[Rfam]
RNA sequence: GGGUCAAUAAUGAGAACUUUAUAUUGUUUUGAAAGGAGGUGAUGACUUCAAAAUCAUGCCCAAUAGGAUUAUGCUGAGGCCC
Dot-bracket structure: ((((((.((..............................................................)).))..))))
Numbered sequence: 001g002g003g004u005c006a007a008u009a010a011u012g013a014g015a016a017c018u019u020u021a022u023a024u025u026g027u028u029u030u031g032a033a034a035g036g037a038g039g040u041g042a043u044g045a046c047u048u049c050a051a052a053a054u055c056a057u058g059c060c061c062a063a064u065a066g067g068a069u070u071a072u073g074c075u076g077a078g079g080c081c082c
Stems, first nucleotide, its partner, number of pairs: 001082004005076002008073002